[Rfam]
RNA sequence: AUCAAAAGCAUCAUUGAGUGCAGCGUUGAUGAAUUCAUGAAACCCAAACUCCAUUUUUUUCAAGAUCUCGUCAGCGCUGCAUUCAAUCAUGCAUUUG
Numbered sequence: 001a002u003c004a005a006a007a008g009c010a011u012c013a014u015u016g017a018g019u020g021c022a023g024c025g026u027u028g029a030u031g032a033a034u035u036c037a038u039g040a041a042a043c044c045c046a047a048a049c050u051c052c053a054u055u056u057u058u059u060u061c062a063a064g065a066u067c068u069c070g071u072c073a074g075c076g077c078u079g080c081a082u083u084c085a086a087u088c089a090u091g092c093a094u095u096u097g
Stems, first nucleotide, its partner, number of pairs: 006094001008092004013087016030070003
RNA: MIR397 microRNA precursor family